[Rfam]
RNA: UnaL2 LINE 3' element
Organism: Coregonus sp. 'balchen'
RNA sequence: UUCACUAAAAACUGUAAGUCGUCUCUGGAUAAGAGUGUCUGCUAAAUGACGUAAA
Numbered sequence: 001u002u003c004a005c006u007a008a009a010a011a012c013u014g015u016a017a018g019u020c021g022u023c024u025c026u027g028g029a030u031a032a033g034a035g036u037g038u039c040u041g042c043u044a045a046a047u048g049a050c051g052u053a054a055a
Base pairs, nucleotide, nucleotide: 013044014042015041016040020037021036023035024034025033026032